Description
Alphaproteobacteria transfer-messenger RNA: a 350-nucleotide sequence from Sphingomonas sp. NFR15. Rfam's curators write: Bacterial tmRNA, also known as 10Sa RNA or SsrA, is named for its dual tRNA and mRNA-like properties. Its role is to liberate the mRNA from a stalled ribosome. It scores 220 bits against the family's covariance model. Clan: tRNA clan. The source organism's lineage runs through Bacteria, Pseudomonadati, Sphingomonadales, Sphingomonadaceae and Sphingomonas. It is annotated as a non-coding RNA gene.
RNA sequence: CCCCUUUGCAUUAAGUUUCGGCCUCCCUAUAUAGGCUCCGUCGGCCGGUUCGUCCGGUGACUAUGGCGAUAAAGUGCGGCGUGAAAUAGAUGCAGCGGACCCGGGGGCAGUACCCGGCGGCUCCACCACAGCCUGCCCUUUGAGGGCGGGCUAUGAAGGGGCCGAACCAGGAUCGACGUGUAUUGAAAGGCGCUGUUUUUGCCCGGGCUGAGUAACCCGUUCAAGGCUCAAAACCACAAGUGCUAACGAUAACGAAGCACUCGCGAUUGCCGCGUAACUGACGGCUUAACGGCCUAAGUUACGACGCAUAAACGCGGUUCGGGCCGCACCGGGCAACAGAAGCGGACACC
Numbered sequence: 001c002c003c004c005u006u007u008g009c010a011u012u013a014a015g016u017u018u019c020g021g022c023c024u025c026c027c028u029a030u031a032u033a034g035g036c037u038c039c040g041u042c043g044g045c046c047g048g049u050u051c052g053u054c055c056g057g058u059g060a061c062u063a064u065g066g067c068g069a070u071a072a073a074g075u076g077c078g079g080c081g082u083g084a085a086a087u088a089g090a091u092g093c094a095g096c097g098g099a100c101c102c103g104g105g106g107g108c109a110g111u112a113c114c115c116g117g118c119g120g121c122u123c124c125a126c127c128a129c130a131g132c133c134u135g136c137c138c139u140u141u142g143a144g145g146g147c148g149g150g151c152u153a154u155g156a157a158g159g160g161g162c163c164g165a166a167c168c169a170g171g172a173u174c175g176a177c178g179u180g181u182a183u184u185g186a187a188a189g190g191c192g193c194u195g196u197u198u199u200u201g202c203c204c205g206g207g208c209u210g211a212g213u214a215a216c217c218c219g220u221u222c223a224a225g226g227c228u229c230a231a232a233a234c235c236a237c238a239a240g241u242g243c244u245a246a247c248g249a250u251a252a253c254g255a256a257g258c259a260c261u262c263g264c265g266a267u268u269g270c271c272g273c274g275u276a277a278c279u280g281a282c283g284g285c286u287u288a289a290c291g292g293c294c295u296a297a298g299u300u301a302c303g304a305c306g307c308a309u310a311a312a313c314g315c316g317g318u319u320c321g322g323g324c325c326g327c328a329c330c331g332g333g334c335a336a337c338a339g340a341a342g343c344g345g346a347c348a349c350c
Stems, first nucleotide, its partner, number of pairs: 040061004065203005076196007091182003095179003101117005118164007204219004209230003315331004321347001324344001
Dot-bracket structure: .......................................((((..............))))...(((((......(((((((........(((.(((...(((((.......)))))(((((((.................................)))))))............)))))).......)))))))..)))))((((.[[[....))))........]]]....................................................................................((((..[..[...))))............]..]...